RNA sequence: UAAUUACAAGGCGAUGGAGCUCGCCACAACCGCCUUUUUUAUUUUUACAUACUCAAUAUUCGAUAAAAAAGGCUAAUGGCUCCUACUUUUCC
Numbered sequence: 001u002a003a004u005u006a007c008a009a010g011g012c013g014a015u016g017g018a019g020c021u022c023g024c025c026a027c028a029a030c031c032g033c034c035u036u037u038u039u040u041a042u043u044u045u046u047a048c049a050u051a052c053u054c055a056a057u058a059u060u061c062g063a064u065a066a067a068a069a070a071g072g073c074u075a076a077u078g079g080c081u082c083c084u085a086c087u088u089u090u091c092c
Base pairs, nucleotide, nucleotide: 010025011024012023013022016083017082018081019080020079021078032073033072034071035070036069037068038067039066040065041064042063043062
Rfam assigns this 92-nucleotide sequence from Calothrix sp. NIES-3974 to the family "Fluoride riboswitch aptamer (crcB RNA motif)".